Shown here is a 51-nucleotide sequence, a member of the family "DUF3800-VI RNA".
RNA sequence: CAGUUGGGAGAGCCGCAGUUUUGGUUCGUUGGAAUUAUUCCACCCGGCUGC
Dot-bracket structure: (((.((((.((((((......))))))..((((.....)))))))).))).